The record is a 105-nucleotide RNA sequence from Bixa orellana, which matches "Plastid-rps12 3UTR RNA" in Rfam. The organism belongs to Bixa, within Eukaryota. Rfam classes the family as a cis-regulatory element. Rfam's curators put it in the seed alignment. The literature on the family includes a 2023 paper in Plant Commun by Richter et al., "Retrograde signaling in plants: A critical review focusing on the GUN pathway and beyond". About the family: Plastid rpl20 is a non-coding RNA (ncRNA) recognised in plastids. It was found in the three prime untranslated region (3UTR) of rps12 gene, its 3UTR location sugest a role in transcript maduration.
RNA sequence: GGUUUCCAUUCACACAAGUCCAAUCACUUCAAUUUGAAAUUUAAGAUGAUAAAAAAUUCCCCAUUGGUAGCAAACGCUUAUCCAUUAAGCGGGGGAAAUCCUAUU
Numbered sequence: 001g002g003u004u005u006c007c008a009u010u011c012a013c014a015c016a017a018g019u020c021c022a023a024u025c026a027c028u029u030c031a032a033u034u035u036g037a038a039a040u041u042u043a044a045g046a047u048g049a050u051a052a053a054a055a056a057u058u059c060c061c062c063a064u065u066g067g068u069a070g071c072a073a074a075c076g077c078u079u080a081u082c083c084a085u086u087a088a089g090c091g092g093g094g095g096a097a098a099u100c101c102u103a104u105u
Stems, first nucleotide, its partner, number of pairs: 009023002059094004063085002066082005